The record is a 69-nucleotide sequence, which matches "mir-193 microRNA precursor family" in Rfam. For this family Rfam cites "Small RNA expression and strain specificity in the rat" (Linsen et al., BMC Genomics, 2010).
[Rfam]
RNA sequence: AGUCGGGGUUUUGGGGGCGAGAUGAGCUUAUGUUUUAUCCAACUGGCCCACAAAGUCCCGCUUUUGGUG
Numbered sequence: 001a002g003u004c005g006g007g008g009u010u011u012u013g014g015g016g017g018c019g020a021g022a023u024g025a026g027c028u029u030a031u032g033u034u035u036u037a038u039c040c041a042a043c044u045g046g047c048c049c050a051c052a053a054a055g056u057c058c059c060g061c062u063u064u065u066g067g068u069g
Base pairs, nucleotide, nucleotide: 001063002062004060005059006058007057009055010054011053012052013051015049016048017047018046020044021043023041024040